[Rfam]
Shown here is a 122-nucleotide sequence from Podarcis lilfordi, a member of the family "Small nucleolar RNA SNORA26". It scores 47 bits against the family's covariance model. Taxonomically the source falls in Podarcis (Eukaryota, Sauria, Squamata, Laterata). The base pairs follow the family's consensus structure, which was predicted with RNAalifold. The snoRNA HBI-6 belong to the H/ACA family of snoRNAs, guiding the pseudouridylation of position U4522 if the 28S rRNA. HBI-6 is the human orthologue of mouse MBI-6 snoRNA. Rfam classes the family as an H/ACA-box small nucleolar RNA. The family has 76 seed sequences and 1,943 matches in Rfam 15.1. A reference for the family is Huttenhofer et al. (2001), "RNomics: an experimental approach that identifies 201 candidates for novel, small, non-messenger RNAs in mouse", EMBO J.
RNA sequence: UUGCGCACCACAAGCGUCCCGUGCUUGAGGUGGUCAACACAGGGGGGCAGAGGAUCCCUCUCACUGAAACCCGGGGCAGGGCUGCCGCCCUCUGCUUCCGGAUCCUGUCGUGAGAGACACGU
Numbered sequence: 001u002u003g004c005g006c007a008c009c010a011c012a013a014g015c016g017u018c019c020c021g022u023g024c025u026u027g028a029g030g031u032g033g034u035c036a037a038c039a040c041a042g043g044g045g046g047g048c049a050g051a052g053g054a055u056c057c058c059u060c061u062c063a064c065u066g067a068a069a070c071c072c073g074g075g076g077c078a079g080g081g082c083u084g085c086c087g088c089c090c091u092c093u094g095c096u097u098c099c100g101g102a103u104c105c106u107g108u109c110g111u112g113a114g115a116g117a118c119a120c121g122u
Stems, first nucleotide, its partner, number of pairs: 002049003006045001008043002014038001016035001017033001019030001058116001060114005071101003074097004079092003084088001